Group II catalytic intron D1-D4-3: a 172-nucleotide RNA from Bacteroides sp. CAG:530. Group II introns are found in rRNA, tRNA and mRNA of organelles in fungi, plants and protists, and also in mRNA in bacteria. The organism belongs to Bacteroides, within Bacteria.
[Rfam]
RNA sequence: UUCAUCGCGAGAUGAAAUCUGAAGGAAGCCAGCGGCAAACAUCUGACCUAACGAACAGAAACUUCAUACAAGGCAUUUGACCAUGGAUAAGAUUGCACAACAAAUCAAAGUCCAAUAGCUAUUCGGAAUGGUUGGUGUAAAUGAAGUAGGUAUAAGAUGGAAAGAUAAUGCC
Numbered sequence: 001u002u003c004a005u006c007g008c009g010a011g012a013u014g015a016a017a018u019c020u021g022a023a024g025g026a027a028g029c030c031a032g033c034g035g036c037a038a039a040c041a042u043c044u045g046a047c048c049u050a051a052c053g054a055a056c057a058g059a060a061a062c063u064u065c066a067u068a069c070a071a072g073g074c075a076u077u078u079g080a081c082c083a084u085g086g087a088u089a090a091g092a093u094u095g096c097a098c099a100a101c102a103a104a105u106c107a108a109a110g111u112c113c114a115a116u117a118g119c120u121a122u123u124c125g126g127a128a129u130g131g132u133u134g135g136u137g138u139a140a141a142u143g144a145a146g147u148a149g150g151u152a153u154a155a156g157a158u159g160g161a162a163a164g165a166u167a168a169u170g171c172c
Base pairs, nucleotide, nucleotide: 001016002015003014004013005012006011028172030170031169036164040159041158042157043156044155046151047150048149049148050147062146063145064144065143066142067141073138074137075136077134079133080132081131082130083129084128085113086112087111088110091106092105093104094103